Overview:
Small nucleolar SNORD12/SNORD106: a 95-nucleotide RNA sequence from Xenopus laevis. The organism belongs to Xenopus, within Eukaryota. Rfam classes the family as a C/D-box small nucleolar RNA.
RNA sequence: GCUGAUGUCCCAAGUGAUGACUGAACUUUUUUCCCCAACAGAUCGACACUGUUGACUUGUAAAGCUUUUAAGCCAGUUUUGUCUGAUACAUCAGC
Numbered sequence: 001g002c003u004g005a006u007g008u009c010c011c012a013a014g015u016g017a018u019g020a021c022u023g024a025a026c027u028u029u030u031u032u033c034c035c036c037a038a039c040a041g042a043u044c045g046a047c048a049c050u051g052u053u054g055a056c057u058u059g060u061a062a063a064g065c066u067u068u069u070a071a072g073c074c075a076g077u078u079u080u081g082u083c084u085g086a087u088a089c090a091u092c093a094g095c
Base pairs, nucleotide, nucleotide: 001095002094003093004092005091006090007089008088012087

Rfam 15.1 lists 2,264 matches to the family in 650 species.